Rfam assigns this 121-nucleotide sequence from Trichobilharzia regenti to the family "U5 spliceosomal RNA". Lineage of the source: Eukaryota > Opisthokonta > Metazoa > Lophotrochozoa > Trichobilharzia. On this family, see Zwieb, Nucleic Acids Res 1997: "The uRNA database". The match comes from Rfam's covariance-model search (74 bits). The base pairs follow the family's consensus structure, which is taken from published work. About the family: U5 RNA is a component of both types of known spliceosome. The precise function of this molecule is unknown, though it is known that the 5' loop is required for splice site selection and p220 binding, and that both the 3' stem-loop and the Sm site are important for Sm protein binding and cap methylation.

[Rfam]
RNA sequence: CAACUCUGGUGUCUCCUAAUUUGCGGAUAAAUCUUUCGCCUUUUACCAAAGAUUUCCAUGGGGAGGCACAAUACAAUGAGUCGUGCCUCAUUAUUUCUUGGCUUUUUCUUCGGACGGAGUA
Number, nucleotide and partner (000 for none) at each position: 001c000002a000003a081004c080005u079006c078007u000008g000009g069010u068011g067012u066013c065014u064015c063016c062017u061018a000019a059020u000021u000022u000023g000024c000025g000026g000027a000028u000029a055030a054031a053032u052033c051034u050035u049036u048037c000038g000039c000040c000041u000042u000043u000044u000045a000046c000047c000048a036049a035050a034051g033052a032053u031054u030055u029056c000057c000058a000059u019060g000061g017062g016063g015064a014065g013066g012067c011068a010069c009070a000071a000072u000073a000074c000075a000076a000077u000078g006079a005080g004081u003082c000083g000084u000085g000086c000087c000088u000089c000090a000091u000092u000093a000094u000095u000096u000097c000098u000099u121100g000101g120102c119103u118104u117105u116106u000107u000108c000109u000110u000111c000112g000113g000114a000115c000116g105117g104118a103119g102120u101121a099